About this RNA: A member of the RNA family "Glycine riboswitch aptamer" from Extensimonas vulgaris, 113 nucleotides long. The organism belongs to Extensimonas, within Bacteria.
RNA sequence: UCCCCCGCGUCAGGAGAGAGCGCCUGCAGCCUUUGCAACAAAGCAAGCCGCAGGUGCCGCCGAAGGCGCAGGAGGUUUUCCAAACGCUCAGGCAAAAGGACUGGCAAGCGCCC
Numbered sequence: 001u002c003c004c005c006c007g008c009g010u011c012a013g014g015a016g017a018g019a020g021c022g023c024c025u026g027c028a029g030c031c032u033u034u035g036c037a038a039c040a041a042a043g044c045a046a047g048c049c050g051c052a053g054g055u056g057c058c059g060c061c062g063a064a065g066g067c068g069c070a071g072g073a074g075g076u077u078u079u080c081c082a083a084a085c086g087c088u089c090a091g092g093c094a095a096a097a098g099g100a101c102u103g104g105c106a107a108g109c110g111c112c113c
Stems, first nucleotide, its partner, number of pairs: 006108001009105005020057008059093003062089002066087003072080002